Rfam assigns this 104-nucleotide RNA from Salarias fasciatus to the family "mir-454 microRNA precursor family".
RNA sequence: GGUCUGUGUCCUUGCAGAUGAGACCCUAUCAAUAUUGCCUCUGCUUUCACUAGAGCUAACAGAGUAGUGCAAUAUUGCUUAUAGGGUCUUGACUGUGAGGAAUG
Numbered sequence: 001g002g003u004c005u006g007u008g009u010c011c012u013u014g015c016a017g018a019u020g021a022g023a024c025c026c027u028a029u030c031a032a033u034a035u036u037g038c039c040u041c042u043g044c045u046u047u048c049a050c051u052a053g054a055g056c057u058a059a060c061a062g063a064g065u066a067g068u069g070c071a072a073u074a075u076u077g078c079u080u081a082u083a084g085g086g087u088c089u090u091g092a093c094u095g096u097g098a099g100g101a102a103u104g
Stems, first nucleotide, its partner, number of pairs: 020090010030077009041067005
Lineage of the source: Eukaryota > Neopterygii > Clupeocephala > Euacanthomorphacea > Salarias.
For this family Rfam cites "The developmental miRNA profiles of zebrafish as determined by small RNA cloning" (Chen et al., Genes Dev, 2005).